[Rfam]
RNA sequence: GAUCACUGUGAUGACUACAUAAAAUUCAAGCUCAACAGACCGCAGUGCAGGGCUUUCUUCUCUUUUGAGAGAUUGAUUGCUUUGCGUGUCGAUAACCCCGCUGAACUGAGUGAUC
Dot-bracket structure: ((((((.......................................................................................................))))))
Small nucleolar RNA Z107/R87: a 115-nucleotide sequence from Medicago truncatula.
A search with the family's covariance model found it, with a score of 105 bits.
The base pairs follow the family's consensus structure, which was predicted with RNAfold.
It is annotated as a C/D-box small nucleolar RNA.
Gene Ontology terms of the family: RNA processing and nucleolus.
NCBI's taxonomy places the organism under Eukaryota, Streptophytina, eudicotyledons, Fabales, Medicago.
Rfam 15.1 lists 783 matches to the family in 221 species.